[Rfam]
RNA sequence: UAUUGGAAAAUUCUUCGAGCCUACCCGCCUAUGGGUGGGGCCAUUUAACACAGAGUGGUCCACAUCUAUGGCGGCUGGCCGAUAGGGUUCAGCUGGAAACGGCUGUGCCUCCCGUGUUUGGAAAGGAGAAUUUUUUAAGGGUCA
Numbered sequence: 001u002a003u004u005g006g007a008a009a010a011u012u013c014u015u016c017g018a019g020c021c022u023a024c025c026c027g028c029c030u031a032u033g034g035g036u037g038g039g040g041c042c043a044u045u046u047a048a049c050a051c052a053g054a055g056u057g058g059u060c061c062a063c064a065u066c067u068a069u070g071g072c073g074g075c076u077g078g079c080c081g082a083u084a085g086g087g088u089u090c091a092g093c094u095g096g097a098a099a100c101g102g103c104u105g106u107g108c109c110u111c112c113c114g115u116g117u118u119u120g121g122a123a124a125g126g127a128g129a130a131u132u133u134u135u136u137a138a139g140g141g142u143c144a
Base pairs, nucleotide, nucleotide: 003138004137006135011130012129013128014127015126016125019079020078021077024074025073027072028071029070033067034066035065036064085110086109087108088107090105091104092103093102094101095100111121112120